[Rfam]
RNA sequence: GUGCUUGCAGGUGCAGCACCAUCAAGAUUCACAUCCAACAACUCAUCUUCUUCAGUGAUGCUGUGCUUCACAUGUGCGAUGAGAUGAGAAUCUUGAUGAUGCUGCAUCAGCAGACAC
Numbered sequence: 001g002u003g004c005u006u007g008c009a010g011g012u013g014c015a016g017c018a019c020c021a022u023c024a025a026g027a028u029u030c031a032c033a034u035c036c037a038a039c040a041a042c043u044c045a046u047c048u049u050c051u052u053c054a055g056u057g058a059u060g061c062u063g064u065g066c067u068u069c070a071c072a073u074g075u076g077c078g079a080u081g082a083g084a085u086g087a088g089a090a091u092c093u094u095g096a097u098g099a100u101g102c103u104g105c106a107u108c109a110g111c112a113g114a115c116a117c
Base pairs, nucleotide, nucleotide: 010108011107012106013105014104015103016102017101018100020098021097022096023095024094025093026092027091028090029089030088032086033085034084035083
The record is a 117-nucleotide RNA from Paspalum vaginatum, which matches "mir-172 microRNA precursor family" in Rfam.
Rfam describes the family as follows. mir-172 has been experimentally verified in Arabidopsis thaliana. This family is thought to target mRNAs coding for APETALA2-like transcription factors.
Its family is annotated with miRNA-mediated post-transcriptional gene silencing and RISC complex in the Gene Ontology.
Lineage of the source: Eukaryota > Streptophytina > Embryophyta > commelinids > Paspalum.